[Rfam]
RNA: TPP riboswitch aptamer (THI element)
RNA sequence: GGCGAACGACAGGGGAGCGUCAGGGCGGGCAACCGCCGGGACGCUGAGAGUGCGGACCAACCGCAGACCCUCGAACCUGAUCCGGUUGAUACCGGCGUAGGGAGUCGGGCUUCUCAUCUC
Numbered sequence: 001g002g003c004g005a006a007c008g009a010c011a012g013g014g015g016a017g018c019g020u021c022a023g024g025g026c027g028g029g030c031a032a033c034c035g036c037c038g039g040g041a042c043g044c045u046g047a048g049a050g051u052g053c054g055g056a057c058c059a060a061c062c063g064c065a066g067a068c069c070c071u072c073g074a075a076c077c078u079g080a081u082c083c084g085g086u087u088g089a090u091a092c093c094g095g096c097g098u099a100g101g102g103a104g105u106c107g108g109g110c111u112u113c114u115c116a117u118c119u120c
Stems, first nucleotide, its partner, number of pairs: 007107004011071004017044005051065005076101004082095004